A member of the RNA family "ASpks TB sRNA" from Streptomyces rochei, 75 nucleotides long.

RNA sequence: CUUCACCGACCCCAGCCACAACGGCCGACCCGGAUCACGCCCCUGCCCAUACGUCGCCAGCAGCGCCUGCGCCUC
Numbered sequence: 001c002u003u004c005a006c007c008g009a010c011c012c013c014a015g016c017c018a019c020a021a022c023g024g025c026c027g028a029c030c031c032g033g034a035u036c037a038c039g040c041c042c043c044u045g046c047c048c049a050u051a052c053g054u055c056g057c058c059a060g061c062a063g064c065g066c067c068u069g070c071g072c073c074u075c
Base pairs, nucleotide, nucleotide: 015025016024017023036069038065039064043060044059045058047056049054
A reference for the family is Arnvig and Young (2009), "Identification of small RNAs in Mycobacterium tuberculosis", Mol Microbiol.